[Rfam]
RNA sequence: GCAUUCUGACCUAGCCUAUUACUCCUGCUAAGAGUGAAUGGAUAACAGGGGAGUCUGGCAGGACACACAGCAACCUCCUCUAAGUUUAGGAGGGCUGUCCUGGGUAUAGGGCUGCCCUUAAGGGGGAAAAA
Numbered sequence: 001g002c003a004u005u006c007u008g009a010c011c012u013a014g015c016c017u018a019u020u021a022c023u024c025c026u027g028c029u030a031a032g033a034g035u036g037a038a039u040g041g042a043u044a045a046c047a048g049g050g051g052a053g054u055c056u057g058g059c060a061g062g063a064c065a066c067a068c069a070g071c072a073a074c075c076u077c078c079u080c081u082a083a084g085u086u087u088a089g090g091a092g093g094g095c096u097g098u099c100c101u102g103g104g105u106a107u108a109g110g111g112c113u114g115c116c117c118u119u120a121a122g123g124g125g126g127a128a129a130a131a
Base pairs, nucleotide, nucleotide: 004063005062006061007060008059010058011057025053026052028050029049032046079131081129085124086123087122090119091118092117093116094115095114097112098111099110100109101108102107
Dot-bracket structure: ...(((((.((.............((.((..(.............)..)).))...)))))))...............(.(...(((..((((((.((((((....)))))).))))))..)))....).)
Shown here is a 131-nucleotide RNA from Myotis davidii, a member of the family "Small Cajal body specific RNA 11". Its family is annotated with RNA processing, nucleolus and Cajal body in the Gene Ontology. About the family: scaRNAs are a specific class of small nuclear RNAs which localise to the Cajal bodies and guide the modification of RNA polymerase II transcribed spliceosomal RNAs U1, U2, U4, U5 and U12. ACA57 belongs to the H/ACA box class of guide RNAs as it has the predicted hairpin-hinge-hairpin-tail structure, conserved H/ACA-box motifs and is found associated with GAR1. ACA57 is predicted to guide the pseudouridylation of the U5 spliceosomal RNA at position U43. A search with the family's covariance model found it, with a score of 51 bits.